L19-Flavobacteria ribosomal protein leader: a 28-nucleotide sequence. By type it is a cis-regulatory leader. The sequence is in the family's curated seed alignment.

RNA sequence: UAACCUCUGACGAGAAUCGUGAAUGUUG
Numbered sequence: 001u002a003a004c005c006u007c008u009g010a011c012g013a014g015a016a017u018c019g020u021g022a023a024u025g026u027u028g
Stems, first nucleotide, its partner, number of pairs: 001028004008023001010020004